[Rfam]
RNA sequence: CCUCCCCUGGCGCUGGCCGGCGAGCCGGGGACCCACUCCCUGGGGUGAGUCCACGACCUCCGGGUCGUGGUAGGGCGCACUUCUUCCCCGCCCGAACCCGUCAGCUAACCCGGUAGGCGGUGCGAGGAAGAAGG
Numbered sequence: 001c002c003u004c005c006c007c008u009g010g011c012g013c014u015g016g017c018c019g020g021c022g023a024g025c026c027g028g029g030g031a032c033c034c035a036c037u038c039c040c041u042g043g044g045g046u047g048a049g050u051c052c053a054c055g056a057c058c059u060c061c062g063g064g065u066c067g068u069g070g071u072a073g074g075g076c077g078c079a080c081u082u083c084u085u086c087c088c089c090g091c092c093c094g095a096a097c098c099c100g101u102c103a104g105c106u107a108a109c110c111c112g113g114u115a116g117g118c119g120g121u122g123c124g125a126g127g128a129a130g131a132a133g134g
Stems, first nucleotide, its partner, number of pairs: 001117002024114006034042002043099003051070006073093004
Rfam assigns this 134-nucleotide RNA sequence from Actinocatenispora sera to the family "c-di-AMP riboswitch aptamer (ydaO/yuaA leader)".
The source organism's lineage runs through Bacteria, Bacillati, Actinomycetota, Micromonosporaceae and Actinocatenispora.
It scores 68 bits against the family's covariance model.